[Rfam]
RNA sequence: UAUGCCCGGGAUCGCCCUCCGUCAGCGCGUUGCGCCCACGGAGGUCUCUGUG
Numbered sequence: 001u002a003u004g005c006c007c008g009g010g011a012u013c014g015c016c017c018u019c020c021g022u023c024a025g026c027g028c029g030u031u032g033c034g035c036c037c038a039c040g041g042a043g044g045u046c047u048c049u050g051u052g
Stems, first nucleotide, its partner, number of pairs: 016044007025035004
RNA: ffh sRNA
Organism: Salipiger mucosus